[Rfam]
RNA sequence: GGUAGGUUGGCCGAGAGGAAAUGCGCUCGGUUGCUAACCGAAGGCCAACCGCAAGGUUGCAUAGGUUCGAUUCCUAUACCUACCG
Numbered sequence: 001g002g003u004a005g006g007u008u009g010g011c012c013g014a015g016a017g018g019a020a021a022u023g024c025g026c027u028c029g030g031u032u033g034c035u036a037a038c039c040g041a042a043g044g045c046c047a048a049c050c051g052c053a054a055g056g057u058u059g060c061a062u063a064g065g066u067u068c069g070a071u072u073c074c075u076a077u078a079c080c081u082a083c084c085g
Stems, first nucleotide, its partner, number of pairs: 001084007010024002027041004061077005
Background:
The family of this 85-nucleotide RNA sequence from Pseudaminobacter soli is "tRNA". Its family is annotated with triplet codon-amino acid adaptor activity in the Gene Ontology. The family's consensus secondary structure is taken from published work. Rfam classes the family as a transfer RNA. It scores 46 bits against the family's covariance model.